[Rfam]
RNA sequence: UCAUUAUCAAGAGUGGUGGAGGGACUGGCCCGAUGAAGCCCGGCAACCCGUUUAAUAACUUCCAAUACUGGGAAGUUUGUGAACAGGGUGCCAAUUCCUGCAGUGCUUGGCACUGAAAGAUAAGGA
Numbered sequence: 001u002c003a004u005u006a007u008c009a010a011g012a013g014u015g016g017u018g019g020a021g022g023g024a025c026u027g028g029c030c031c032g033a034u035g036a037a038g039c040c041c042g043g044c045a046a047c048c049c050g051u052u053u054a055a056u057a058a059c060u061u062c063c064a065a066u067a068c069u070g071g072g073a074a075g076u077u078u079g080u081g082a083a084c085a086g087g088g089u090g091c092c093a094a095u096u097c098c099u100g101c102a103g104u105g106c107u108u109g110g111c112a113c114u115g116a117a118a119g120a121u122a123a124g125g126a
Base pairs, nucleotide, nucleotide: 001126002125004123005122006121007120008119013041015040016039017038021031022030023029025100027098028097042092043091044090045089047088048087050084051083052082053081096118101115102114103113104112105111106110